[Rfam]
RNA sequence: AUUUUUGGAUAAUCGCGCGAGCCUUGAUGUUCGUGAGGAAAGUCCAUGCUAGCACUGGCUGUGAUGCCAGUAGUGUUUGUGCUAGGCGAAACGAUAAGCCUAGGCGCGCCGAGUGCGUGACGGCGGUUAAACGAGCUAAGUCGCAAGAUAGGCUUUACUAGACCUGAAAGUGCCACAGUGACGAAGUUUUUGUGGAAACACAAAAAGUGGAACGCGGUAAACCCCUCAAGCUAGCAACCCAAACUUUGGUAGGGGCAUGGGAUAGGAAGAAUCCGAAUGACUAUCCUGACUGCGUAAGCAGUAGACAGAUGAUUAUCGAAGGAACUGGUUCCUAGUCAGUUCUGGAACAAAACAUGGCUUAUAGAA
Numbered sequence: 001a002u003u004u005u006u007g008g009a010u011a012a013u014c015g016c017g018c019g020a021g022c023c024u025u026g027a028u029g030u031u032c033g034u035g036a037g038g039a040a041a042g043u044c045c046a047u048g049c050u051a052g053c054a055c056u057g058g059c060u061g062u063g064a065u066g067c068c069a070g071u072a073g074u075g076u077u078u079g080u081g082c083u084a085g086g087c088g089a090a091a092c093g094a095u096a097a098g099c100c101u102a103g104g105c106g107c108g109c110c111g112a113g114u115g116c117g118u119g120a121c122g123g124c125g126g127u128u129a130a131a132c133g134a135g136c137u138a139a140g141u142c143g144c145a146a147g148a149u150a151g152g153c154u155u156u157a158c159u160a161g162a163c164c165u166g167a168a169a170g171u172g173c174c175a176c177a178g179u180g181a182c183g184a185a186g187u188u189u190u191u192g193u194g195g196a197a198a199c200a201c202a203a204a205a206a207g208u209g210g211a212a213c214g215c216g217g218u219a220a221a222c223c224c225c226u227c228a229a230g231c232u233a234g235c236a237a238c239c240c241a242a243a244c245u246u247u248g249g250u251a252g253g254g255g256c257a258u259g260g261g262a263u264a265g266g267a268a269g270a271a272u273c274c275g276a277a278u279g280a281c282u283a284u285c286c287u288g289a290c291u292g293c294g295u296a297a298g299c300a301g302u303a304g305a306c307a308g309a310u311g312a313u314u315a316u317c318g319a320a321g322g323a324a325c326u327g328g329u330u331c332c333u334a335g336u337c338a339g340u341u342c343u344g345g346a347a348c349a350a351a352a353c354a355u356g357g358c359u360u361a362u363a364g365a366a
Base pairs, nucleotide, nucleotide: 004366005365006364007362008317009316010315011314012313013312014311016035017034018033019032020031021030040360041359042358044357045356046355047354048353049234050233051232052231053230054071055070056069057068058067059066077229078228079227081225082103083102084101085100086099087098104121105119106118107117108116109115122224123223125164126163127162128161133155134154135153136152140149141148142147170222171221172218173217174216187206188205189204190203191202192201193200194199238254239253240252258288259287260286261285262284263283264282289302290301291300292299293298321343322342323341324340325339326338327337328336329335

Record summary
The family of this 366-nucleotide RNA sequence from Streptococcus merionis is "Bacterial RNase P class B". It is annotated as a ribozyme. NCBI's taxonomy places the organism under Bacteria, Bacillati, Bacillota, Bacilli, Streptococcus. About the family: Ribonuclease P (RNase P) is a ubiquitous endoribonuclease, found in archaea, bacteria and eukarya as well as chloroplasts and mitochondria. Its best characterised activity is the generation of mature 5'-ends of tRNAs by cleaving the 5'-leader elements of precursor-tRNAs. Cellular RNase Ps are ribonucleoproteins. RNA from bacterial RNase Ps retains its catalytic activity in the absence of the protein subunit, i.e. it is a ribozyme.